RNA sequence: CGAUGAAGACCUCUUCGCACCAGCACGCAAGUUCGGCCCGGAUGGCCUCGGGCAUGACCUCGCGUGCCCGUCGACCGGACGCCUGCAACUAGCUGGGUUACCGGAGGUCGUCUUGCAU
Number, nucleotide and partner (000 for none) at each position: 001c000002g000003a000004u000005g000006a000007a000008g000009a000010c000011c000012u000013c000014u000015u000016c000017g000018c000019a000020c000021c000022a000023g000024c000025a000026c000027g000028c115029a114030a113031g112032u000033u110034c000035g000036g000037c106038c104039c103040g076041g075042a000043u073044g072045g071046c070047c000048u000049c000050g000051g068052g067053c066054a065055u064056g063057a000058c000059c000060u000061c000062g000063c056064g055065u054066g053067c052068c051069c000070g046071u045072c044073g043074a000075c041076c040077g102078g101079a000080c000081g000082c097083c096084u095085g094086c092087a000088a000089c000090u000091a000092g086093c000094u085095g084096g083097g082098u000099u000100a000101c078102c077103g039104g038105a000106g037107g000108u000109c000110g033111u000112c031113u030114u029115g028116c000117a000118u000